[Rfam]
RNA sequence: AGUUGUGCGUCUCCAACUGGUCUCCUAGUAACUUUUUAUAGACGUCGCAGUCUAGUGUAGGUUUCGUCCUAUGGAGUACCCUCCUAUAUUCAGUAGAUAGGCCACUGUG
Numbered sequence: 001a002g003u004u005g006u007g008c009g010u011c012u013c014c015a016a017c018u019g020g021u022c023u024c025c026u027a028g029u030a031a032c033u034u035u036u037u038a039u040a041g042a043c044g045u046c047g048c049a050g051u052c053u054a055g056u057g058u059a060g061g062u063u064u065c066g067u068c069c070u071a072u073g074g075a076g077u078a079c080c081c082u083c084c085u086a087u088a089u090u091c092a093g094u095a096g097a098u099a100g101g102c103c104a105c106u107g108u109g
Base pairs, nucleotide, nucleotide: 001018002017003016004015005014019080020079021078022076023075024074025073039054040053041052042051043050083101084100085099086098087097